[Rfam]
RNA sequence: CCUUCCAAAACAUGUCGUAGCAUGACCUAACCGGAGAUAGUCGGUGGUGUAGAGCACUGAUUGGGGAUCCCGGGGGAGAAAUCCCUCGCUCCCCUGUCAAACUCCAAAACUACCGUCGUCUAAGAAAGUUGGAGUCCGGGCUACUGGGGUAAGCUUGUAGUCCGUAAGGGAGAGAACCCAGCCCGUGGUUAAGGUCCCUAAGUGUCGACUAAGUGUUAAAGAUAAAGGGUGUCCCAGGCCCUAAACAGCUGGAAGGUUAGCUUAGAAGCAGCUACCCUUUAAAGAGUGCGUAACAGCCCACCAGUCGAGGUCUGGGGCCCCGAAAAUGGACGGGGCUCAAGUCGACCACCGAUACCACGGAGUACCGAAAGGUAAUCUUGUAGGAAGGCGUUGCGUUCGGGCAGAAGCAGGGUUGUGAAGUCCUGUGGACCGUACGGAAACGAAAAU
Numbered sequence: 001c002c003u004u005c006c007a008a009a010a011c012a013u014g015u016c017g018u019a020g021c022a023u024g025a026c027c028u029a030a031c032c033g034g035a036g037a038u039a040g041u042c043g044g045u046g047g048u049g050u051a052g053a054g055c056a057c058u059g060a061u062u063g064g065g066g067a068u069c070c071c072g073g074g075g076g077a078g079a080a081a082u083c084c085c086u087c088g089c090u091c092c093c094c095u096g097u098c099a100a101a102c103u104c105c106a107a108a109a110c111u112a113c114c115g116u117c118g119u120c121u122a123a124g125a126a127a128g129u130u131g132g133a134g135u136c137c138g139g140g141c142u143a144c145u146g147g148g149g150u151a152a153g154c155u156u157g158u159a160g161u162c163c164g165u166a167a168g169g170g171a172g173a174g175a176a177c178c179c180a181g182c183c184c185g186u187g188g189u190u191a192a193g194g195u196c197c198c199u200a201a202g203u204g205u206c207g208a209c210u211a212a213g214u215g216u217u218a219a220a221g222a223u224a225a226a227g228g229g230u231g232u233c234c235c236a237g238g239c240c241c242u243a244a245a246c247a248g249c250u251g252g253a254a255g256g257u258u259a260g261c262u263u264a265g266a267a268g269c270a271g272c273u274a275c276c277c278u279u280u281a282a283a284g285a286g287u288g289c290g291u292a293a294c295a296g297c298c299c300a301c302c303a304g305u306c307g308a309g310g311u312c313u314g315g316g317g318c319c320c321c322g323a324a325a326a327u328g329g330a331c332g333g334g335g336c337u338c339a340a341g342u343c344g345a346c347c348a349c350c351g352a353u354a355c356c357a358c359g360g361a362g363u364a365c366c367g368a369a370a371g372g373u374a375a376u377c378u379u380g381u382a383g384g385a386a387g388g389c390g391u392u393g394c395g396u397u398c399g400g401g402c403a404g405a406a407g408c409a410g411g412g413u414u415g416u417g418a419a420g421u422c423c424u425g426u427g428g429a430c431c432g433u434a435c436g437g438a439a440a441c442g443a444a445a446a447u
Base pairs, nucleotide, nucleotide: 001388002387003386004385005384006383011024012023013022014021015020026134027132028131029130030129031128036120037119038118040117042115043114044113045112046111047110052105053103054102059098060097061096063094064093065092066091067090072087073086074085075084076083077082138163139162140161141160142159143158144157146156147155168179169178170177183360184359185358186357187356188355189354193350194349195348202347204346205345206344207343208342209341227321228320229319231318232317233316234315235314236313237312238311239310240309248305249304250303251302252301254278255277256276259273260272261271279283284299288297289296361378362377363374364373365372366371389442391439392438394436395435396434398432399431400430407426408425409424410423411422412421413420414419
RNA: Archaeal large subunit ribosomal RNA, nucleotides 920 to 1366
Organism: Methanohalophilus mahii